[Rfam]
Rfam assigns this 64-nucleotide RNA from Danio rerio to the family "mir-462 microRNA precursor family". Pairs were carried over by alignment from the consensus structure, which was predicted with RNAalifold. Lineage of the source: Eukaryota > Chordata > Gnathostomata > Actinopterygii > Danio.
RNA sequence: UAACGGAACCCAUAAUGCAGCUGUUUGGUUGAUUGAUUGACAGCUGUCUGUGGAUUCCGUGCCC
Numbered sequence: 001u002a003a004c005g006g007a008a009c010c011c012a013u014a015a016u017g018c019a020g021c022u023g024u025u026u027g028g029u030u031g032a033u034u035g036a037u038u039g040a041c042a043g044c045u046g047u048c049u050g051u052g053g054a055u056u057c058c059g060u061g062c063c064c
Stems, first nucleotide, its partner, number of pairs: 003060006010053005017047009028037003